[Rfam]
This 243-nucleotide part of an RNA from Bacteroides finegoldii belongs to the Rfam family "Bacterial large subunit ribosomal RNA". Taxonomically the source falls in Bacteroides (Bacteria, Pseudomonadati, Bacteroidales, Bacteroidaceae). The match comes from Rfam's covariance-model search (2767 bits).

Nucleotides: 243
Base pairs, nucleotide, nucleotide: 002158003157004156005155006154007153008152011145012144013143014142017045018044019043020042021041022040023039047102048101049100050099051098055096056095057094062089063088064087065086066085067082068081069080070079071078072077106140107139108138113133114132115131116130117129162239163238164237165236166182167181168180169179170178187232188231189230190228191227192226193225194224196221197220200216204215205214206213207212
Number, partner (000 for none) and nucleotide at each position: 001000u002158g003157a004156a005155a006154u007153u008152u009000g010000c011145g012144u013143g014142g015000c016000u017045c018044u019043g020042a021041c022040a023039c024000u025000a026000g027000u028000a029000c030000g031000a032000g033000a034000g035000g036000a037000c038000c039023g040022u041021g042020u043019u044018g045017g046000a047102c048101u049100g050099a051098c052000c053000u054000c055096u056095g057094g058000u059000u060000u061000a062089c063088c064087a065086g066085u067082u068081g069080u070079g071078c072077c073000g074000c075000c076000a077072g078071g079070u080069g081068c082067a083000u084000u085066g086065c087064u088063g089062g090000g091000u092000a093000u094057c095056u096055a097000a098051g099050u100049c101048g102047g103000g104000a105000u106140u107139g108138g109000a110000u111000a112000a113133g114132u115131g116130c117129u118000g119000a120000a121000a122000g123000c124000a125000u126000c127000u128000a129117a130116g131115u132114a133113c134000g135000a136000a137000g138108c139107c140106a141000g142014c143013c144012a145011c146000a147000a148000g149000a150000u151000u152008a153007g154006a155005u156004u157003u158002c159000u160000u161000a162239g163238g164237g165236u166182c167181g168180u169179c170178a171000a172000a173000g174000a175000c176000g177000a178170u179169g180168a181167c182166g183000u184000u185000g186000a187232u188231a189230g190228g191227a192226u193225g194224c195000a196221g197220g198000u199000g200216u201000a202000a203000a204215g205214g206213u207212g208000g209000u210000a211000a212207c213206a214205u215204c216200a217000c218000a219000g220197c221196c222000g223000a224194g225193c226192a227191u228190u229000a230189c231188u232187a233000a234000u235000u236165g237164c238163c239162c240000g241000u242000u243000c